[Rfam]
This 137-nucleotide RNA from Mycolicibacterium neoaurum belongs to the Rfam family "SAM (S-adenosyl methionine) riboswitch aptamer". A search with the family's covariance model found it, with a score of 106 bits. A reference for the family is Weinberg et al. (2008), "The aptamer core of SAM-IV riboswitches mimics the ligand-binding site of SAM-I riboswitches", RNA. SAM-IV is a mRNA element that regulates gene expression via direct sensing of S-adenosylmethionine (SAM or AdoMet). SAM-IV riboswitches share conserved nucleotide positions with the previously described SAM-I riboswitches sequence analysis and molecular recognition experiments suggest that SAM-I and SAM-IV riboswitches share similar ligand binding sites, but have different scaffolds.

RNA sequence: GGUCAUGAGUGCCAGCACUAAGCCCCGGCUUGCUGGCCGGCAACCCUCCAACCGCGGUGGGGUGCUCCGGGUGAAGACCAGGUUGAGUAGUCGCACGUCUUUUUCGAAGACAGGCGACCACACGGCAAGCGCGGGUC
Numbered sequence: 001g002g003u004c005a006u007g008a009g010u011g012c013c014a015g016c017a018c019u020a021a022g023c024c025c026c027g028g029c030u031u032g033c034u035g036g037c038c039g040g041c042a043a044c045c046c047u048c049c050a051a052c053c054g055c056g057g058u059g060g061g062g063u064g065c066u067c068c069g070g071g072u073g074a075a076g077a078c079c080a081g082g083u084u085g086a087g088u089a090g091u092c093g094c095a096c097g098u099c100u101u102u103u104u105c106g107a108a109g110a111c112a113g114g115c116g117a118c119c120a121c122a123c124g125g126c127a128a129g130c131g132c133g134g135g136u137c
Stems, first nucleotide, its partner, number of pairs: 001079004009038001011037006021030002039066003044062003048057002082126004087121002090118005